[Rfam]
About this RNA:
The record is an 83-nucleotide RNA from Natronorubrum sulfidifaciens, which matches "tRNA" in Rfam. Rfam classes the family as a transfer RNA.
RNA sequence: GCGAGGGUAGCCAAGCGGCCAACGGCGGCGGACUCAAGAUCCGCUCGUGUAGACGUUCGUGGGUUCGAUUCCCUCCCCUCGCA
Numbered sequence: 001g002c003g004a005g006g007g008u009a010g011c012c013a014a015g016c017g018g019c020c021a022a023c024g025g026c027g028g029c030g031g032a033c034u035c036a037a038g039a040u041c042c043g044c045u046c047g048u049g050u051a052g053a054c055g056u057u058c059g060u061g062g063g064u065u066c067g068a069u070u071c072c073c074u075c076c077c078c079u080c081g082c083a
Stems, first nucleotide, its partner, number of pairs: 001082007010026003028044005059075001061073003
Gene Ontology term of the family: triplet codon-amino acid adaptor activity.